[Rfam]
RNA sequence: GGGCAUGUCAGACCACUGUCUCCCUCUCAAGCCAUAGGGAUUGAUGGUGUCUAAAAAACAUGCUAGAGUCAAUAUAUUGGAGUCCACAGGGCCAUCGAUCUUAAAGAGAUGAUCCUUUGGUAGUAUAGGACUCCAACAAAG
Numbered sequence: 001g002g003g004c005a006u007g008u009c010a011g012a013c014c015a016c017u018g019u020c021u022c023c024c025u026c027u028c029a030a031g032c033c034a035u036a037g038g039g040a041u042u043g044a045u046g047g048u049g050u051c052u053a054a055a056a057a058a059c060a061u062g063c064u065a066g067a068g069u070c071a072a073u074a075u076a077u078u079g080g081a082g083u084c085c086a087c088a089g090g091g092c093c094a095u096c097g098a099u100c101u102u103a104a105a106g107a108g109a110u111g112a113u114c115c116u117u118u119g120g121u122a123g124u125a126u127a128g129g130a131c132u133c134c135a136a137c138a139a140a141g
Stems, first nucleotide, its partner, number of pairs: 003063006019043001023039002026037001079134004091121002097114004102109001
A member of the RNA family "Small nucleolar RNA U109" from Gymnodraco acuticeps, 141 nucleotides long. It scores 44 bits against the family's covariance model.